Rfam assigns this 86-nucleotide RNA to the family "GA-cis RNA".
The base pairs follow the family's consensus structure, which is taken from published work.
It is annotated as a small RNA.
The sequence is in the family's curated seed alignment.
RNA sequence: GAGAGGAAGCACCAUGCACCGAAGGUGCAUUUCGCAAUGGUGCUGACGACUUGCCUUCGAACGAAUGUGAGGAGGCGGUACUAGUA
Numbered sequence: 001g002a003g004a005g006g007a008a009g010c011a012c013c014a015u016g017c018a019c020c021g022a023a024g025g026u027g028c029a030u031u032u033c034g035c036a037a038u039g040g041u042g043c044u045g046a047c048g049a050c051u052u053g054c055c056u057u058c059g060a061a062c063g064a065a066u067g068u069g070a071g072g073a074g075g076c077g078g079u080a081c082u083a084g085u086a
Base pairs, nucleotide, nucleotide: 008044009043010042011041012040013039014030015029016028017027018026019025053076054075055074057072058071061068062067